[Rfam]
RNA: mir-8517 microRNA precursor family
RNA sequence: UUAGUGGAGGCUUUAGCUCUUAAACUGUUUUGACCUUCUCUGUUAAAGAACGAAUUGUUCUCUGUCAGAGAUUGACAAAACAGUUCAAUAGCUAAAGCAUAAAGCGUCCACUGAC
Numbered sequence: 001u002u003a004g005u006g007g008a009g010g011c012u013u014u015a016g017c018u019c020u021u022a023a024a025c026u027g028u029u030u031u032g033a034c035c036u037u038c039u040c041u042g043u044u045a046a047a048g049a050a051c052g053a054a055u056u057g058u059u060c061u062c063u064g065u066c067a068g069a070g071a072u073u074g075a076c077a078a079a080a081c082a083g084u085u086c087a088a089u090a091g092c093u094a095a096a097g098c099a100u101a102a103a104g105c106g107u108c109c110a111c112u113g114a115c
Stems, first nucleotide, its partner, number of pairs: 001114006011097008020088002023085006029069006049059004